Shown here is a 71-nucleotide RNA from Ceuthmochares aereus, a member of the family "Small nucleolar RNA SNORD30". Its Rfam clan is "SNORD30 clan". By type it is a C/D-box small nucleolar RNA. Rfam 15.1 lists 367 matches to the family in 268 species.

RNA sequence: UCACGUGAUGAAUCCCACUCUGGAAUCUCGUUCGGCUGACACGUGCUGCUGAGCUCUCAUUUCUGACUGGG
Numbered sequence: 001u002c003a004c005g006u007g008a009u010g011a012a013u014c015c016c017a018c019u020c021u022g023g024a025a026u027c028u029c030g031u032u033c034g035g036c037u038g039a040c041a042c043g044u045g046c047u048g049c050u051g052a053g054c055u056c057u058c059a060u061u062u063c064u065g066a067c068u069g070g071g
Base pairs, nucleotide, nucleotide: 027053028052029051030050033048034047035046036045